Small nucleolar RNA SNORD87: a 90-nucleotide sequence from Microcebus murinus. The literature on the family includes a 2001 paper in EMBO J by Huttenhofer et al., "RNomics: an experimental approach that identifies 201 candidates for novel, small, non-messenger RNAs in mouse". Rfam links the family to the GO terms RNA processing and nucleolus. A search with the family's covariance model found it, with a score of 56 bits.
[Rfam]
RNA sequence: UUGGGCACAGUGAUCACUUAAAUCAAUGCUUUUUGCAGUUUACCCAGCUGAGGGUGUCUUUGCAGAAAUAAUUUUAAGAUAGAUUUUAAA
Numbered sequence: 001u002u003g004g005g006c007a008c009a010g011u012g013a014u015c016a017c018u019u020a021a022a023u024c025a026a027u028g029c030u031u032u033u034u035g036c037a038g039u040u041u042a043c044c045c046a047g048c049u050g051a052g053g054g055u056g057u058c059u060u061u062g063c064a065g066a067a068a069u070a071a072u073u074u075u076a077a078g079a080u081a082g083a084u085u086u087u088a089a090a
Base pairs, nucleotide, nucleotide: 001090002089004087005086007084